[Rfam]
RNA sequence: GCGAGACAGGUGGACCGGCGGCGGAGGGUGACGGAUAAACUGCUCAUGGACCGUCUCGAGGCGCAGCCCCCGGCCGGUCCGCCAAUGAUCAGCCAGCAGCCGCUGCAACCCCAGGGAG
Number, nucleotide and partner (000 for none) at each position: 001g000002c000003g000004a000005g000006a000007c000008a000009g000010g000011u000012g000013g000014a000015c000016c000017g000018g000019c000020g000021g000022c000023g000024g000025a000026g000027g000028g000029u000030g000031a000032c000033g000034g000035a000036u000037a000038a000039a000040c000041u000042g000043c000044u000045c000046a000047u000048g080049g079050a078051c077052c076053g075054u000055c000056u073057c072058g071059a000060g070061g069062c000063g000064c000065a000066g000067c000068c000069c061070c060071c058072g057073g056074c000075c053076g052077g051078u050079c049080c048081g000082c000083c000084a000085a000086u000087g000088a000089u000090c000091a000092g000093c000094c105095a104096g103097c102098a000099g000100c000101c000102g097103c096104u095105g094106c000107a000108a000109c000110c000111c000112c000113a000114g000115g000116g000117a000118g000
Notes: Rfam assigns this 118-nucleotide sequence from Streptomyces sp. ISL-1 to the family "Streptomyces-metK RNA". NCBI's taxonomy places the organism under Bacteria, Bacillati, Actinomycetes, Streptomycetaceae, Streptomyces. A search with the family's covariance model found it, with a score of 117 bits.